The family of this 162-nucleotide sequence from Mangrovibacter sp. MFB070 is "SraG RNA". Its family is annotated with mRNA binding and sRNA-mediated gene silencing in the Gene Ontology. Rfam describes the family as follows. This RNA was discovered in E. coli during a large scale screen. Evidence was found for specific cleavage of this RNA.

RNA sequence: CUUUAUGCUCCCUCGCGACUAAUGGAAACACAGAAAAAUUUUAUGUGCUUUCAUUAGCCGCGCGAACCUCAGCAAUAAAGACUAUUAAAAGCAACAAUACAUUACUUUCUGGUUAAUUGCUGCUUUUGAGUUGAAAAAAGGGGCCUCUGGAGGCCCCUUUUU
Numbered sequence: 001c002u003u004u005a006u007g008c009u010c011c012c013u014c015g016c017g018a019c020u021a022a023u024g025g026a027a028a029c030a031c032a033g034a035a036a037a038a039u040u041u042u043a044u045g046u047g048c049u050u051u052c053a054u055u056a057g058c059c060g061c062g063c064g065a066a067c068c069u070c071a072g073c074a075a076u077a078a079a080g081a082c083u084a085u086u087a088a089a090a091g092c093a094a095c096a097a098u099a100c101a102u103u104a105c106u107u108u109c110u111g112g113u114u115a116a117u118u119g120c121u122g123c124u125u126u127u128g129a130g131u132u133g134a135a136a137a138a139a140g141g142g143g144c145c146u147c148u149g150g151a152g153g154c155c156c157c158u159u160u161u162u
Stems, first nucleotide, its partner, number of pairs: 001080004007073003014064004019057007086115002140157006
By type it is a small RNA.